The family of this 88-nucleotide RNA from Schinkia azotoformans is "c-di-GMP-I riboswitch aptamer".
RNA sequence: AAUUGAAAAAGGCAAAACUACAGAAAUGUAGUGACGCAAAGCUAUAGGGACUAAUCCGUUAUGUAUGGAAUGUCAGCCAGUUACCGUA
Numbered sequence: 001a002a003u004u005g006a007a008a009a010a011g012g013c014a015a016a017a018c019u020a021c022a023g024a025a026a027u028g029u030a031g032u033g034a035c036g037c038a039a040a041g042c043u044a045u046a047g048g049g050a051c052u053a054a055u056c057c058g059u060u061a062u063g064u065a066u067g068g069a070a071u072g073u074c075a076g077c078c079a080g081u082u083a084c085c086g087u088a
Stems, first nucleotide, its partner, number of pairs: 012037002017032006040082004047078002049074003056068004
About the family: GEMM was predicted in a large-scale screen for bacterial structured RNA regulatory elements.
It scores 81 bits against the family's covariance model.